This 338-nucleotide sequence from Cotesia typhae belongs to the Rfam family "Nuclear RNase P". NCBI's taxonomy places the organism under Eukaryota, Protostomia, Panarthropoda, Pterygota, Cotesia. It scores 127 bits against the family's covariance model. From the family's description: Ribonuclease P (RNase P) is a ubiquitous endoribonuclease, found in archaea, bacteria and eukarya as well as chloroplasts and mitochondria. Its best characterised activity is the generation of mature 5'-ends of tRNAs by cleaving the 5'-leader elements of precursor-tRNAs. Cellular RNase Ps are ribonucleoproteins. RNA from bacterial RNase Ps retains its catalytic activity in the absence of the protein subunit, i.e. it is a ribozyme. Gene Ontology terms of the family: ribonuclease P activity, tRNA processing and ribonuclease P complex.

RNA sequence: GUCAGAGUCAAUCUCGCAGCAAGAGGCAUACCUACGGGUACACGUCUGUGUGUUACCCAAAGAGCCUCGGGAAGGUCUGAGAUAAAGUCACUAGACGUUCUAGACGGACGAGUUCAUAACUGGACUGCGGAAUACCAGAAAUAGCGGGAUUUGCGGACACAAUAGCCCAGGAAGCUGGUUCUGGUAAGCAAAUAUAUACGGCUUACGUCAGCUGAGGUUGUUGCCGCUUAUUCCGAUGAGAUGUUUCGUAGACUGGCCUCUGAAGUUUAAUCUGCGAGCCACGACGAUGAGCUUUACAGCUCAGAGUGGAACUCAAUUCAGACUAAUCUGACUCUGAC
Numbered sequence: 001g002u003c004a005g006a007g008u009c010a011a012u013c014u015c016g017c018a019g020c021a022a023g024a025g026g027c028a029u030a031c032c033u034a035c036g037g038g039u040a041c042a043c044g045u046c047u048g049u050g051u052g053u054u055a056c057c058c059a060a061a062g063a064g065c066c067u068c069g070g071g072a073a074g075g076u077c078u079g080a081g082a083u084a085a086a087g088u089c090a091c092u093a094g095a096c097g098u099u100c101u102a103g104a105c106g107g108a109c110g111a112g113u114u115c116a117u118a119a120c121u122g123g124a125c126u127g128c129g130g131a132a133u134a135c136c137a138g139a140a141a142u143a144g145c146g147g148g149a150u151u152u153g154c155g156g157a158c159a160c161a162a163u164a165g166c167c168c169a170g171g172a173a174g175c176u177g178g179u180u181c182u183g184g185u186a187a188g189c190a191a192a193u194a195u196a197u198a199c200g201g202c203u204u205a206c207g208u209c210a211g212c213u214g215a216g217g218u219u220g221u222u223g224c225c226g227c228u229u230a231u232u233c234c235g236a237u238g239a240g241a242u243g244u245u246u247c248g249u250a251g252a253c254u255g256g257c258c259u260c261u262g263a264a265g266u267u268u269a270a271u272c273u274g275c276g277a278g279c280c281a282c283g284a285c286g287a288u289g290a291g292c293u294u295u296a297c298a299g300c301u302c303a304g305a306g307u308g309g310a311a312c313u314c315a316a317u318u319c320a321g322a323c324u325a326a327u328c329u330g331a332c333u334c335u336g337a338c
Stems, first nucleotide, its partner, number of pairs: 001338004008331003013278007023068005036058005041052003077321005086254004096110005111126006127249007145235006279309004